[Rfam]
RNA: FMN riboswitch aptamer (RFN element)
Organism: Nesterenkonia natronophila
RNA sequence: CACGUGCUCACGGGAUCGGUGAAAGUCCGAACCGGCGGUCAAAGUCCGCGACCCGGCGCCCACUGCGCCGGUUGAACCGGUGCAAUUCCGGUGCCGACAGUCAAAGUCUGGAUGGGAGUAGCACAGA
Number, nucleotide and partner (000 for none) at each position: 001c000002a000003c000004g124005u123006g122007c121008u120009c000010a000011c000012g000013g000014g000015a000016u000017c029018g028019g027020u000021g000022a000023a000024a000025g000026u000027c019028c018029g017030a000031a107032c106033c096034g095035g049036c048037g047038g046039u000040c000041a000042a000043a000044g094045u093046c038047c037048g036049c035050g000051a000052c000053c071054c070055g000056g000057c000058g000059c000060c000061c000062a000063c000064u000065g000066c000067g000068c000069c000070g054071g053072u000073u000074g000075a000076a092077c091078c090079g089080g088081u000082g000083c000084a000085a000086u000087u000088c080089c079090g078091g077092u076093g045094c044095c034096g033097a000098c110099a109100g108101u000102c000103a000104a000105a000106g032107u031108c100109u099110g098111g000112a000113u000114g000115g000116g000117a000118g000119u000120a008121g007122c006123a005124c004125a000126g000127a000